[Rfam]
RNA: Glycine riboswitch aptamer
Organism: Paenibacillus graminis
RNA sequence: AUGAUGGCAUAGGGAGAGACUGCCUCACAGGAGGGCAGCGCCGAAGGAGUAAGCCCGGGAGGGUGAAUCUCUCAGGCAAAAGGACCUUUGCCGGACG
Numbered sequence: 001a002u003g004a005u006g007g008c009a010u011a012g013g014g015a016g017a018g019a020c021u022g023c024c025u026c027a028c029a030g031g032a033g034g035g036c037a038g039c040g041c042c043g044a045a046g047g048a049g050u051a052a053g054c055c056c057g058g059g060a061g062g063g064u065g066a067a068u069c070u071c072u073c074a075g076g077c078a079a080a081a082g083g084a085c086c087u088u089u090g091c092c093g094g095a096c097g
Base pairs, nucleotide, nucleotide: 006092007091008090009089011087012086013085020038021037022036023035040077041076042075043073044072047071048070049069053064054063